[Rfam]
RNA sequence: ACGUCGGCUAUGCAUUGUGGAUACUUCGUUCGGAUUUUUGUCUAAAUACCUCGCACAAGCGAGCUCUUGCCAAAACUCACGUACCCGUCUGGGUUCGAGUCUUGGCCGUUCCACACGCGCCAUCCGACAAUUUU
Numbered sequence: 001a002c003g004u005c006g007g008c009u010a011u012g013c014a015u016u017g018u019g020g021a022u023a024c025u026u027c028g029u030u031c032g033g034a035u036u037u038u039u040g041u042c043u044a045a046a047u048a049c050c051u052c053g054c055a056c057a058a059g060c061g062a063g064c065u066c067u068u069g070c071c072a073a074a075a076c077u078c079a080c081g082u083a084c085c086c087g088u089c090u091g092g093g094u095u096c097g098a099g100u101c102u103u104g105g106c107c108g109u110u111c112c113a114c115a116c117g118c119g120c121c122a123u124c125c126g127a128c129a130a131u132u133u134u
Stems, first nucleotide, its partner, number of pairs: 003128005012118002015115001017114004025099004

A member of the RNA family "Vault RNA" from Strongylocentrotus purpuratus, 134 nucleotides long. The match comes from Rfam's covariance-model search (39 bits). The family has 73 seed sequences and 2,873 matches in Rfam 15.1. The organism belongs to Strongylocentrotus, within Eukaryota. The literature on the family includes a 2009 paper in Mol Biol Evol by Stadler et al., "Evolution of Vault RNAs".